[Rfam]
RNA sequence: CAAGCAGGCCACCUUAUCGCUGCCAAUAUGUAUUGGGAGAGGAAAGUCCGGACACCAUAGUGCGGUAUAGCGGGUAACGCCCGUCCGCUGAGAAGCGAGGACAAGUGCAACAGAAAGCAAGUACAGUUAGGCUGUAGUGAAAUCAGGUAAACUCUAUACGGUGAAACGUCAUGUAAAUCGGUGAUCGAGGGCUGCACGCCCGAGCCGAAGGGUAGGCGGUUGGAGCCAUUGGGUAACCAGUGGCCUAGAUAAAUGAUAAGGGUUCGUUAUACGAAAACAGAAUCCGGCUUAUGGCCUGCUUUUUUA
Numbered sequence: 001c002a003a004g005c006a007g008g009c010c011a012c013c014u015u016a017u018c019g020c021u022g023c024c025a026a027u028a029u030g031u032a033u034u035g036g037g038a039g040a041g042g043a044a045a046g047u048c049c050g051g052a053c054a055c056c057a058u059a060g061u062g063c064g065g066u067a068u069a070g071c072g073g074g075u076a077a078c079g080c081c082c083g084u085c086c087g088c089u090g091a092g093a094a095g096c097g098a099g100g101a102c103a104a105g106u107g108c109a110a111c112a113g114a115a116a117g118c119a120a121g122u123a124c125a126g127u128u129a130g131g132c133u134g135u136a137g138u139g140a141a142a143u144c145a146g147g148u149a150a151a152c153u154c155u156a157u158a159c160g161g162u163g164a165a166a167c168g169u170c171a172u173g174u175a176a177a178u179c180g181g182u183g184a185u186c187g188a189g190g191g192c193u194g195c196a197c198g199c200c201c202g203a204g205c206c207g208a209a210g211g212g213u214a215g216g217c218g219g220u221u222g223g224a225g226c227c228a229u230u231g232g233g234u235a236a237c238c239a240g241u242g243g244c245c246u247a248g249a250u251a252a253a254u255g256a257u258a259a260g261g262g263u264u265c266g267u268u269a270u271a272c273g274a275a276a277a278c279a280g281a282a283u284c285c286g287g288c289u290u291a292u293g294g295c296c297u298g299c300u301u302u303u304u305u306a
Stems, first nucleotide, its partner, number of pairs: 002301010012261007020039002023036005044290003048287005053163004060197004065159005070084005085099001086097004100154002105152002107148002122136006167218004178208005189201004225244008
Dot-bracket structure: .(((((((((((((((((.((.(((((....))))).))....[[[.[[[[[((((...[[[[.((((((((((.....)))))(((((....)))).)((...((((.............((((((...))))))..........))..)))))))))))))...((((.......(((((......((((.]]]]))))..)))))......))))......((((((((....))))))))..........))))))).....................]]]]]]]].)))))))))).....

Shown here is a 306-nucleotide RNA sequence from Maribacter cobaltidurans, a member of the family "Bacterial RNase P class A".
From the family's description: Ribonuclease P (RNase P) is a ubiquitous endoribonuclease, found in archaea, bacteria and eukarya as well as chloroplasts and mitochondria.
NCBI's taxonomy places the organism under Bacteria, Bacteroidota, Flavobacteriales, Flavobacteriaceae, Maribacter.
The match comes from Rfam's covariance-model search (214 bits).